[Rfam]
Rfam assigns this 133-nucleotide sequence from Cephalotus follicularis to the family "MIR397 microRNA precursor family".
On this family, see Wu et al., Plant Cell 2009: "Rice MicroRNA effector complexes and targets".
RNA sequence: GUGAAAAACAUGAUUGAGUGCAGCGCUGGUGAAAUCAUUCCACACCCAUGGCAUACAUAUUUCCACAAAAAUUGGAAACAAACCAACAGAAAUCUGUAGGAAUUCAUCAACGCUGCACUCAAUGAUGUUUUCU
Dot-bracket structure: .....((((((.(((((((((((((.((.(((.......................................................................))).)).))))))))))))).))))))...

Gene Ontology terms of the family: miRNA-mediated post-transcriptional gene silencing and RISC complex.